RNA: c-di-AMP riboswitch aptamer (ydaO/yuaA leader)
RNA sequence: UGAGUAAGUCAGCCUAAUCCUCUUGAGAUAGAAGAUAGAGGUACGGGGGAACCAACUUUGGGGCGUAUUUUGACAGAAAAAGCAUCCUAGUUUCUGCUAAGAGGGACAUCUCUCAGUCCUAGCCCAUCAGCUAACCUCGUCGGCAUUGGGAGAAGCCUG
Numbered sequence: 001u002g003a004g005u006a007a008g009u010c011a012g013c014c015u016a017a018u019c020c021u022c023u024u025g026a027g028a029u030a031g032a033a034g035a036u037a038g039a040g041g042u043a044c045g046g047g048g049g050a051a052c053c054a055a056c057u058u059u060g061g062g063g064c065g066u067a068u069u070u071u072g073a074c075a076g077a078a079a080a081a082g083c084a085u086c087c088u089a090g091u092u093u094c095u096g097c098u099a100a101g102a103g104g105g106a107c108a109u110c111u112c113u114c115a116g117u118c119c120u121a122g123c124c125c126a127u128c129a130g131c132u133a134a135c136c137u138c139g140u141c142g143g144c145a146u147u148g149g150g151a152g153a154a155g156c157c158u159g
Base pairs, nucleotide, nucleotide: 012144013143014142019041020040021039022038023037043140044139045138046137047136048135053060054059061125062124063123069101070100071099072098104119105118106117107116